A member of the RNA family "T-box leader" from Paratissierella segnis, 214 nucleotides long. It scores 148 bits against the family's covariance model. Its family is annotated with tRNA binding in the Gene Ontology. Taxonomically the source falls in Paratissierella (Bacteria, Bacillota, Tissierellales, Tissierellaceae).
[Rfam]
RNA sequence: AAAAUUACGCUGAUAAAGAGGAGUAGACGGGUAUCCUUUAAAGAGAAAAGGUCAUAUGGUGGAAGACCUUAAGGCUCUAAUCGUUGAAGGUAGCUUUGGAGUAUUUAAACUGAAACUUUAGUAGGUUUAAACGGCAAUUACCGUUAUAUAUUUUAAGAGCCAUAUUUUUUUAAUAUGGAAUCAAGGUGGUACCGCGAUGCCCUUCGUCCUUAUA
Numbered sequence: 001a002a003a004a005u006u007a008c009g010c011u012g013a014u015a016a017a018g019a020g021g022a023g024u025a026g027a028c029g030g031g032u033a034u035c036c037u038u039u040a041a042a043g044a045g046a047a048a049a050g051g052u053c054a055u056a057u058g059g060u061g062g063a064a065g066a067c068c069u070u071a072a073g074g075c076u077c078u079a080a081u082c083g084u085u086g087a088a089g090g091u092a093g094c095u096u097u098g099g100a101g102u103a104u105u106u107a108a109a110c111u112g113a114a115a116c117u118u119u120a121g122u123a124g125g126u127u128u129a130a131a132c133g134g135c136a137a138u139u140a141c142c143g144u145u146a147u148a149u150a151u152u153u154u155a156a157g158a159g160c161c162a163u164a165u166u167u168u169u170u171u172a173a174u175a176u177g178g179a180a181u182c183a184a185g186g187u188g189g190u191a192c193c194g195c196g197a198u199g200c201c202c203u204u205c206g207u208c209c210u211u212a213u214a
Stems, first nucleotide, its partner, number of pairs: 007102002015097004026085005036073003048070006105130007132143003160178007183211004194207004